[Rfam]
RNA: Small nucleolar RNA R160
RNA sequence: AGCUAAAUGAAGUGAUUUUUUUUUUUUUUUGAAAUUGAUGUAGAUCUCUUGUUUCAUACAUACCUUCAAAGUUCUAUGAUUGCU
Numbered sequence: 001a002g003c004u005a006a007a008u009g010a011a012g013u014g015a016u017u018u019u020u021u022u023u024u025u026u027u028u029u030u031g032a033a034a035u036u037g038a039u040g041u042a043g044a045u046c047u048c049u050u051g052u053u054u055c056a057u058a059c060a061u062a063c064c065u066u067c068a069a070a071g072u073u074c075u076a077u078g079a080u081u082g083c084u
Stems, first nucleotide, its partner, number of pairs: 001084003005080001